[Rfam]
The family of this 131-nucleotide RNA from Ictidomys tridecemlineatus is "U8 small nucleolar RNA". By type it is a C/D-box small nucleolar RNA. Rfam's curators put it in the seed alignment.
RNA sequence: CCUUCAGGUGGGACAAUCCUUAUCUAUUCCUCCUUUUGGAGGGCAGAUGGAACAGGAUGAUUGGAGUUUGUAUGGUGAUUAGUGUCUAUGAAUAAUAAGGACUUGCAACACUCUGAAUGCUCCUAUCCGAU
Numbered sequence: 001c002c003u004u005c006a007g008g009u010g011g012g013a014c015a016a017u018c019c020u021u022a023u024c025u026a027u028u029c030c031u032c033c034u035u036u037u038g039g040a041g042g043g044c045a046g047a048u049g050g051a052a053c054a055g056g057a058u059g060a061u062u063g064g065a066g067u068u069u070g071u072a073u074g075g076u077g078a079u080u081a082g083u084g085u086c087u088a089u090g091a092a093u094a095a096u097a098a099g100g101a102c103u104u105g106c107a108a109c110a111c112u113c114u115g116a117a118u119g120c121u122c123c124u125a126u127c128c129g130a131u
Stems, first nucleotide, its partner, number of pairs: 024046002028043006069088002072085003076081001093119002096116001098114003